[Rfam]
The record is a 90-nucleotide RNA sequence from Clostridium butyricum, which matches "Glycine riboswitch aptamer" in Rfam.
RNA sequence: CCUCUGGAGAGACUUAUUUAAUAAGCACCGAAGGAGCAAGGUUGUAUACAAUACGUGUACAAUUGAAACUCUCAGGUAAAAGGACAGGGG
Number, nucleotide and partner (000 for none) at each position: 001c090002c089003u088004c087005u086006g085007g000008a000009g000010a000011g000012a000013c025014u024015u023016a022017u000018u000019u000020a000021a000022u016023a015024a014025g013026c000027a077028c076029c075030g073031a072032a000033g000034g071035a070036g069037c000038a000039a000040g064041g063042u062043u061044g060045u059046a058047u057048a056049c055050a000051a000052u000053a000054c000055g049056u048057g047058u046059a045060c044061a043062a042063u041064u040065g000066a000067a000068a000069c036070u035071c034072u031073c030074a000075g029076g028077u027078a000079a000080a000081a000082g000083g000084a000085c006086a005087g004088g003089g002090g001

From the family's description: This family represents the bacterial glycine riboswitch. The organism belongs to Clostridium butyricum, within Bacteria.